[Rfam]
Annotation:
Pseudomonas sRNA P1: a 180-nucleotide sequence from Pseudomonas sp. THAF187a. The match comes from Rfam's covariance-model search (153 bits). Taxonomically the source falls in Pseudomonas (Bacteria, Pseudomonadati, Pseudomonadota, Gammaproteobacteria). Rfam's curators write: This small RNA (sRNA) was computationally identified in the genome of the opportunistic pathogen Pseudomonas aeruginosa and its expression verified by northern blot analysis. There appears to be two related copies of P1 sRNA in the P.aeruginosa PA01 genome and both copies appear to be located upstream of predicted glutamine synthetase genes. The family's RNA type in Rfam is non-coding RNA gene.
RNA sequence: ACACCCGUAUUAUUGCUGUUAUGGGUUUGAACCGAGCUUAGCCUUGUUCAUUUUUUUACACAAUAGCUCUGUAAAAAAUUGAACACACCCCACUGAGCACCUUGGUAGAUCGGCGUUUGGACCACCCAUAACGGCCCUGAAACGCCCCAAAAAUGGCCAUCACGCCCCACAAGAGGGCAU
Numbered sequence: 001a002c003a004c005c006c007g008u009a010u011u012a013u014u015g016c017u018g019u020u021a022u023g024g025g026u027u028u029g030a031a032c033c034g035a036g037c038u039u040a041g042c043c044u045u046g047u048u049c050a051u052u053u054u055u056u057u058a059c060a061c062a063a064u065a066g067c068u069c070u071g072u073a074a075a076a077a078a079u080u081g082a083a084c085a086c087a088c089c090c091c092a093c094u095g096a097g098c099a100c101c102u103u104g105g106u107a108g109a110u111c112g113g114c115g116u117u118u119g120g121a122c123c124a125c126c127c128a129u130a131a132c133g134g135c136c137c138u139g140a141a142a143c144g145c146c147c148c149a150a151a152a153a154u155g156g157c158c159a160u161c162a163c164g165c166c167c168c169a170c171a172a173g174a175g176g177g178c179a180u
Base pairs, nucleotide, nucleotide: 023101024100027097028096034093036091041089044085046084047083048082052078053077054076055075056074057073058072059071162180164178165177167175